[Rfam]
RNA sequence: AAGAAAUGUGGCAUGCCCGUUGUGAUUACUCUGAUUUUUGAUGUAUUAUUAUUGUUUUAAUUGAUUUUGGGAAACGGGGUGUUACAAUCGU
Numbered sequence: 001a002a003g004a005a006a007u008g009u010g011g012c013a014u015g016c017c018c019g020u021u022g023u024g025a026u027u028a029c030u031c032u033g034a035u036u037u038u039u040g041a042u043g044u045a046u047u048a049u050u051a052u053u054g055u056u057u058u059a060a061u062u063g064a065u066u067u068u069g070g071g072a073a074a075c076g077g078g079g080u081g082u083u084a085c086a087a088u089c090g091u
Stems, first nucleotide, its partner, number of pairs: 002091001005088001007086008016078006
RNA: MIR2617 microRNA precursor family